Shown here is an 84-nucleotide RNA from Candidatus Filomicrobium marinum, a member of the family "tRNA".
RNA sequence: GCCUCUGUGGCGGAAUUGGUAGACGCGACAGACUCAAAAUCUGUUGUCCGCAAGGACGUGCCCGUUCGAGUCGGGCCAGGGGCA
Number, nucleotide and partner (000 for none) at each position: 001g083002c082003c081004u080005c079006u078007g077008u000009g000010g026011c025012g024013g000014a000015a000016u000017u000018g000019g000020u000021a000022g000023a000024c012025g011026c010027g000028a044029c043030a042031g041032a040033c000034u000035c000036a000037a000038a000039a000040u032041c031042u030043g029044u028045u000046g000047u000048c000049c000050g000051c000052a000053a000054g000055g000056a000057c000058g000059u000060g076061c075062c074063c073064g072065u000066u000067c000068g000069a000070g000071u000072c064073g063074g062075g061076c060077c007078a006079g005080g004081g003082g002083c001084a000

It is annotated as a transfer RNA. The family's consensus secondary structure is taken from published work. Lineage of the source: Bacteria > Pseudomonadati > Pseudomonadota > Hyphomicrobiaceae > Filomicrobium.